[Rfam]
RNA sequence: CAAAUGGACGACUAGGGUUCCGGUCCGCCGCAAGCAAGCCUUGCGCGGAUGCUGGUCCGAGAGUUGUCGACCUCAGAGGCGCAUCGAGGUUACACGGCGGGAUAAAAGCCCGGGAGAG
Dot-bracket structure: ......((((((..((...(((((((((................)))))).).)).))....))))))((((((.(.......).)))))).(.[...(((.......))).)..]..